[Rfam]
RNA: c-di-AMP riboswitch aptamer (ydaO/yuaA leader)
RNA sequence: AAACGAAGAACACCGGACAGGGGCGGGGGACCCAACACCCGGGCUCCCCGAAGCCCUAGGGGUGAAGCCGGUUCCCCGAACCGGCCGGGCUGCCUCUCAGCCCGAACCCGACAGCUCACCUCGCAGGCGCGGCAGGAGAGAGGAA
Numbered sequence: 001a002a003a004c005g006a007a008g009a010a011c012a013c014c015g016g017a018c019a020g021g022g023g024c025g026g027g028g029g030a031c032c033c034a035a036c037a038c039c040c041g042g043g044c045u046c047c048c049c050g051a052a053g054c055c056c057u058a059g060g061g062g063u064g065a066a067g068c069c070g071g072u073u074c075c076c077c078g079a080a081c082c083g084g085c086c087g088g089g090c091u092g093c094c095u096c097u098c099a100g101c102c103c104g105a106a107c108c109c110g111a112c113a114g115c116u117c118a119c120c121u122c123g124c125a126g127g128c129g130c131g132g133c134a135g136g137a138g139a140g141a142g143g144a145a
Stems, first nucleotide, its partner, number of pairs: 004129002011022001013020001023124006033059001060109003068084004087103004